[Rfam]
RNA sequence: GAUGAAAGAAACUGAAGAUGAAGUCUGAAACUAGGGCUAAAAGCAGCCCUCACAAGGUCUUCCCUGAGUUUUGGGGAGGUGAGUACCCAGAAAAUAGGGCUCUGCAGGAGGGCAGACUGGGUAGGAGAUGUCAUGGACCCCACUCUUGGGGAGUGGUCUGGUGGAUGCUUUCUUAGCCAGAGCUUGGAACAGACUCAUGGCCAGUGAGUGAGUUCAAUGGCUGAGGUGAGGUACCCUGCCUGAGAGCCUCAUAAUCCAAUUCAGACUACUCUCUCCUGUC
Number, nucleotide and partner (000 for none) at each position: 001g280002a279003u278004g277005a000006a000007a274008g273009a272010a000011a000012c225013u224014g000015a222016a000017g000018a000019u000020g000021a000022a000023g000024u000025c264026u263027g262028a261029a260030a000031c000032u000033a000034g000035g202036g201037c200038u199039a000040a000041a000042a000043g000044c000045a000046g058047c057048c056049c000050u000051c000052a000053c000054a000055a000056g048057g047058u046059c000060u078061u077062c076063c075064c074065u073066g000067a000068g000069u000070u000071u000072u000073g065074g064075g063076g062077a061078g060079g198080u197081g196082a195083g194084u193085a000086c000087c000088c000089a000090g000091a000092a000093a000094a000095u000096a000097g000098g000099g183100c182101u181102c180103u179104g178105c000106a000107g000108g000109a000110g000111g000112g000113c000114a000115g000116a000117c000118u000119g000120g000121g000122u000123a000124g000125g000126a000127g000128a000129u000130g000131u000132c000133a000134u000135g000136g000137a000138c000139c000140c000141c000142a000143c000144u000145c000146u000147u000148g000149g000150g000151g000152a000153g000154u000155g000156g000157u000158c000159u000160g000161g000162u000163g000164g000165a000166u000167g000168c000169u000170u000171u000172c000173u000174u000175a000176g000177c000178c104179a103180g102181a101182g100183c099184u000185u000186g000187g000188a000189a000190c000191a000192g000193a084194c083195u082196c081197a080198u079199g038200g037201c036202c035203a000204g000205u000206g000207a000208g000209u000210g000211a000212g000213u000214u000215c000216a000217a000218u000219g000220g000221c000222u015223g000224a013225g012226g252227u251228g250229a249230g248231g247232u246233a000234c000235c000236c000237u000238g000239c000240c000241u000242g000243a000244g000245a000246g232247c231248c230249u229250c228251a227252u226253a000254a000255u000256c000257c000258a000259a000260u029261u028262c027263a026264g025265a000266c000267u000268a000269c000270u000271c000272u009273c008274u007275c000276c000277u004278g003279u002280c001
RNA: Nuclear RNase P
Organism: Ursus maritimus